[Rfam]
RNA sequence: CCAGGAAACUGGGGGGGCGGUUCUUGUUCUCCCUGAGCCACCACCAUCCAGGCACAGAUAGCCUGACAAGGAGAUGGUGUGUGACUCGGAAAAACACCCGCU
Numbered sequence: 001c002c003a004g005g006a007a008a009c010u011g012g013g014g015g016g017g018c019g020g021u022u023c024u025u026g027u028u029c030u031c032c033c034u035g036a037g038c039c040a041c042c043a044c045c046a047u048c049c050a051g052g053c054a055c056a057g058a059u060a061g062c063c064u065g066a067c068a069a070g071g072a073g074a075u076g077g078u079g080u081g082u083g084a085c086u087c088g089g090a091a092a093a094a095c096a097c098c099c100g101c102u
Stems, first nucleotide, its partner, number of pairs: 001012004016102003019098003039083003042079007051063003
Dot-bracket structure: ((((....))))...((((((.................((((((((((..(((.......))).........))))))).)))............))).)))
RNA: Flavivirus 3' UTR cis-acting replication element (CRE)